[Rfam]
Nucleotides: 054
Base pairs, nucleotide, nucleotide: 005049006048007047008046009045010044011043021038022037023036024035025034026033027032
Number, partner (000 for none) and nucleotide at each position: 001000c002000a003000a004000c005049c006048g007047a008046c009045c010044g011043g012000g013000c014000c015000c016000c017000u018000c019000u020000g021038g022037c023036g024035a025034u026033c027032u028000g029000u030000g031000c032027g033026g034025a035024u036023c037022g038021u039000g040000a041000u042000g043011u044010c045009g046008g047007u048006c049005g050000c051000a052000u053000c054000a